[Rfam]
RNA: GP20-b RNA
RNA sequence: UGCCCCGGCCGGGGCGUAACAAACAGGCCAUCCCGUGGGAGCGACCCCGUAAAAAGCGUA
Numbered sequence: 001u002g003c004c005c006c007g008g009c010c011g012g013g014g015c016g017u018a019a020c021a022a023a024c025a026g027g028c029c030a031u032c033c034c035g036u037g038g039g040a041g042c043g044a045c046c047c048c049g050u051a052a053a054a055a056g057c058g059u060a
Stems, first nucleotide, its partner, number of pairs: 001016004008028003012024001036049004